[Rfam]
RNA sequence: ACCCCACACUAAUUAAGCCGGCGUUUUUGAUGCAUCUUUAUCGGAAGCGUGUGCUCGUUGUGGGAAUAGCAAAGUCUGCGCAUUGUGUAUGGUUGUUUAGUUUUCUUUUAAAUUCAACCAAAGAAUUAGCGUAGGACA
Numbered sequence: 001a002c003c004c005c006a007c008a009c010u011a012a013u014u015a016a017g018c019c020g021g022c023g024u025u026u027u028u029g030a031u032g033c034a035u036c037u038u039u040a041u042c043g044g045a046a047g048c049g050u051g052u053g054c055u056c057g058u059u060g061u062g063g064g065a066a067u068a069g070c071a072a073a074g075u076c077u078g079c080g081c082a083u084u085g086u087g088u089a090u091g092g093u094u095g096u097u098u099a100g101u102u103u104u105c106u107u108u109u110a111a112a113u114u115c116a117a118c119c120a121a122a123g124a125a126u127u128a129g130c131g132u133a134g135g136a137c138a
Stems, first nucleotide, its partner, number of pairs: 021050006078132004090120006096112004